[Rfam]
RNA sequence: ACCACGUACUUACCUACUAUAUAGUAGCUGAAAUAGAUGGAUUUUUCCUACUAUAUAGCAGGUAAGUACGUGGUUU
Numbered sequence: 001a002c003c004a005c006g007u008a009c010u011u012a013c014c015u016a017c018u019a020u021a022u023a024g025u026a027g028c029u030g031a032a033a034u035a036g037a038u039g040g041a042u043u044u045u046u047c048c049u050a051c052u053a054u055a056u057a058g059c060a061g062g063u064a065a066g067u068a069c070g071u072g073g074u075u076u
Base pairs, nucleotide, nucleotide: 001074002073003072004071005070006069007068008067009066010065011064012063013062014061015060017058018057019056020055021054022053023052024051025050026049027048030045031044033042034041
Rfam assigns this 76-nucleotide RNA from Ameiurus melas to the family "mir-7563 microRNA precursor family". Its family is annotated with RISC complex and miRNA-mediated post-transcriptional gene silencing in the Gene Ontology. The base pairs follow the family's consensus structure, which was predicted with RNAalifold. Taxonomically the source falls in Ameiurus (Eukaryota, Eumetazoa, Clupeocephala, Characiphysae).